[Rfam]
A member of the RNA family "Glycine riboswitch aptamer" from Anaerosalibacter bizertensis, 82 nucleotides long.
RNA sequence: UUCUCUGGAAAGCGAAAGCACACCGAAGGAGCAAUCCUCCUCGUAUAGAGGAGGAGAAACUCUCAGGUUAUAAAACAGAGUA
Number, nucleotide and partner (000 for none) at each position: 001u082002u000003c080004u079005c078006u077007g076008g000009a000010a000011a000012g000013c000014g000015a000016a000017a000018g000019c000020a000021c000022a068023c067024c066025g064026a063027a000028g000029g062030a061031g060032c000033a000034a000035u055036c054037c053038u052039c051040c050041u049042c000043g000044u000045a000046u000047a000048g000049a041050g040051g039052a038053g037054g036055a035056g000057a000058a000059a000060c031061u030062c029063u026064c025065a000066g024067g023068u022069u000070a000071u000072a000073a000074a000075a000076c007077a006078g005079a004080g003081u000082a001